[Rfam]
RNA sequence: AGCACUGUCUGGUGCUGGCUGCUGUAAGUCCGACGUGCCGAACGGCACUGCCCGGAGUGGCUCGGGAUUAC
Numbered sequence: 001a002g003c004a005c006u007g008u009c010u011g012g013u014g015c016u017g018g019c020u021g022c023u024g025u026a027a028g029u030c031c032g033a034c035g036u037g038c039c040g041a042a043c044g045g046c047a048c049u050g051c052c053c054g055g056a057g058u059g060g061c062u063c064g065g066g067a068u069u070a071c
Stems, first nucleotide, its partner, number of pairs: 001016006024071004030066002035048005050061003
Shown here is a 71-nucleotide RNA from Methanofollis fontis, a member of the family "S15-Methanomicrobia ribosomal protein leader". Pairs were carried over by alignment from the consensus structure, which is taken from published work. It is annotated as a cis-regulatory leader. The source organism's lineage runs through Archaea, Methanobacteriati, Methanobacteriota, Methanomicrobiales and Methanofollis.